[Rfam]
RNA: Potassium channel RNA editing signal
RNA sequence: GUUGGCUACGGUGAUGUGGUACCUGUGGGUGUAUGGGGCAAAAUUAUUGGUUCUAUGUGUGCUAUUACCGGUUUGCUGACCAUCGCCCUCCCUGUACCUGUCAUCGUUUCUAAU
Dot-bracket structure: ((.((..((((.((((.(..((..............((((........(((.........)))..........))))................)).).)))).))))..)).))